The family of this 214-nucleotide RNA sequence from Antrihabitans auranticaus is "Actinobacteria sRNA Ms_IGR-5". The source organism's lineage runs through Bacteria, Bacillati, Actinomycetes, Nocardiaceae and Antrihabitans. Pairs were carried over by alignment from the consensus structure.
[Rfam]
Nucleotides: 214
Base pairs, nucleotide, nucleotide: 014058015057016056017055018054019053060106061105063103064102065101067099068098069097072094073093074092125208126207127206128205129204130203131202132201133200134199135198136197137196138157139156140155141154142153143152
Number, partner (000 for none) and nucleotide at each position: 001000a002000c003000a004000c005000g006000a007000g008000g009000a010000a011000g012000g013000a014058g015057g016056u017055g018054g019053u020000c021000u022000g023000a024000a025000g026000u027000u028000g029000g030000u031000a032000a033000a034000u035000u036000u037000u038000a039000g040000g041000a042000c043000g044000c045000g046000u047000g048000a049000g050000g051000u052000g053019g054018c055017u056016g057015c058014c059000a060106g061105c062000u063103a064102g065101c066000c067099g068098c069097u070000a071000c072094c073093g074092c075000u076000g077000a078000c079000g080000g081000g082000u083000u084000c085000u086000a087000c088000a089000a090000c091000c092074g093073c094072g095000c096000g097069a098068g099067c100000g101065g102064c103063u104000c105061g106060c107000g108000a109000a110000u111000c112000c113000c114000a115000g116000g117000c118000a119000g120000c121000u122000a123000c124000c125208c126207g127206g128205c129204c130203c131202c132201c133200g134199a135198g136197c137196c138157c139156c140155c141154g142153g143152u144000c145000u146000a147000g148000u149000c150000c151000g152143a153142c154141c155140g156139g157138g158000a159000c160000c161000u162000g163000u164000g165000c166000c167000g168000a169000c170000g171000a172000c173000u174000u175000g176000u177000a178000g179000u180000u181000c182000g183000u184000u185000u186000g187000c188000a189000u190000c191000g192000g193000u194000a195000c196137g197136g198135u199134u200133c201132g202131g203130g204129g205128g206127c207126c208125g209000c210000u211000c212000u213000a214000c

It scores 138 bits against the family's covariance model.